[Rfam]
RNA sequence: UGGAUGCUUACGUUUUUAUUCUUUGUUUCACCUGUAUAUGGUGAAAACUGUACAAAAGCAUCCUACAGUAAUACAGAAACUAUCUGUUUAACCCUGGCAAGUUAAGAGGGUUAGAUCGUUCCAUUUCUGACAGUC
Numbered sequence: 001u002g003g004a005u006g007c008u009u010a011c012g013u014u015u016u017u018a019u020u021c022u023u024u025g026u027u028u029c030a031c032c033u034g035u036a037u038a039u040g041g042u043g044a045a046a047a048c049u050g051u052a053c054a055a056a057a058g059c060a061u062c063c064u065a066c067a068g069u070a071a072u073a074c075a076g077a078a079a080c081u082a083u084c085u086g087u088u089u090a091a092c093c094c095u096g097g098c099a100a101g102u103u104a105a106g107a108g109g110g111u112u113a114g115a116u117c118g119u120u121c122c123a124u125u126u127c128u129g130a131c132a133g134u135c
Base pairs, nucleotide, nucleotide: 002063003062004061005060006059007058008057009056014055015054025048026047027046028044029043030042031041032040074129075128076127077126078125079124093109094108095107
This 135-nucleotide RNA from Pelodiscus sinensis belongs to the Rfam family "Small Cajal body specific RNA 24". From the family's description: scaRNAs are a specific class of small nuclear RNAs which localise to the Cajal bodies and guide the modification of RNA polymerase II transcribed spliceosomal RNAs U1, U2, U4, U5 and U12. ACA12 belongs to the H/ACA box class of guide RNAs as it has the predicted hairpin-hinge-hairpin-tail structure,the conserved H/ACA-box motifs and is found associated with GAR1. The base pairs follow the family's consensus structure, which was predicted with RNAfold. A reference for the family is Darzacq et al. (2002), "Cajal body-specific small nuclear RNAs: a novel class of 2'-O-methylation and pseudouridylation guide RNAs", EMBO J. It is annotated as a small Cajal body RNA.